[Rfam]
RNA sequence: AAGCCAGCCAAUUAGUCUGCUUAUCUGAAUUUGUUUCUGCAGAAAUUUAGAAACAGCUGGCAACAAUGCUGCCACCUUAUGAGCCUGAAGGACAACUGAGGCCAUUAAGAUCCCUCAAAAUGGUAACCAUA
Numbered sequence: 001a002a003g004c005c006a007g008c009c010a011a012u013u014a015g016u017c018u019g020c021u022u023a024u025c026u027g028a029a030u031u032u033g034u035u036u037c038u039g040c041a042g043a044a045a046u047u048u049a050g051a052a053a054c055a056g057c058u059g060g061c062a063a064c065a066a067u068g069c070u071g072c073c074a075c076c077u078u079a080u081g082a083g084c085c086u087g088a089a090g091g092a093c094a095a096c097u098g099a100g101g102c103c104a105u106u107a108a109g110a111u112c113c114c115u116c117a118a119a120a121u122g123g124u125a126a127c128c129a130u131a
Stems, first nucleotide, its partner, number of pairs: 003061005016043005071124004083111001085109002088106002091103001093101001
RNA: Small nucleolar RNA SNORA33